RNA sequence: UCCCCCGAGCGGUUGGAAGUCCCGUGACGGAGCCGGGGAACCGCGUUUUUGGGGUGAAUCCGCGUCAGCGGUAGCGCCUUCUUCCAGCGCGAACCCGACAGCUAACCCGGUAGGCGGCCAAGCGGAAGAAA
Numbered sequence: 001u002c003c004c005c006c007g008a009g010c011g012g013u014u015g016g017a018a019g020u021c022c023c024g025u026g027a028c029g030g031a032g033c034c035g036g037g038g039a040a041c042c043g044c045g046u047u048u049u050u051g052g053g054g055u056g057a058a059u060c061c062g063c064g065u066c067a068g069c070g071g072u073a074g075c076g077c078c079u080u081c082u083u084c085c086a087g088c089g090c091g092a093a094c095c096c097g098a099c100a101g102c103u104a105a106c107c108c109g110g111u112a113g114g115c116g117g118c119c120a121a122g123c124g125g126a127a128g129a130a131a
Stems, first nucleotide, its partner, number of pairs: 001031003032111006042051002052096003060071004074090004
This 131-nucleotide RNA from Paractinoplanes atraurantiacus belongs to the Rfam family "c-di-AMP riboswitch aptamer (ydaO/yuaA leader)". Rfam describes the family as follows. This family represents a conserved RNA structure found upstream of the ydaO and yuaA genes in Bacillus subtilis and related genes in other bacteria. The ydaO/yuaA element is thought to act as a genetic 'off' switch for the ydaO and yuaA genes in its native state. It is believed that the element may be triggered during osmotic shock leading to activation of ydaO, a predicted amino acid transporter gene, and members of the yuaA-yubG operon which code for KtrA and KtrB K+ transporters. Rfam links the family to the GO terms regulation of gene expression and cyclic-di-AMP binding. Pairs were carried over by alignment from the consensus structure.